[Rfam]
RNA sequence: AUACCCCAUGAUGCUCAGGUCCGCCGCAUCUCCUGGGUCGUGGGGUCGGUCGGCUGGCAGGCAGAAGAUAACGGUUCCUCGUGCCGUUUUGCAGGCUAGCCGGCCCCCGU
Numbered sequence: 001a002u003a004c005c006c007c008a009u010g011a012u013g014c015u016c017a018g019g020u021c022c023g024c025c026g027c028a029u030c031u032c033c034u035g036g037g038u039c040g041u042g043g044g045g046u047c048g049g050u051c052g053g054c055u056g057g058c059a060g061g062c063a064g065a066a067g068a069u070a071a072c073g074g075u076u077c078c079u080c081g082u083g084c085c086g087u088u089u090u091g092c093a094g095g096c097u098a099g100c101c102g103g104c105c106c107c108c109g110u
Base pairs, nucleotide, nucleotide: 003046004045005044006043007042008041009040010039014037015036016035017034018033019032048105049104050103051102052101053100054099055098056097057096058095
RNA: EcpR1
Organism: Rhizobium sp. JAB6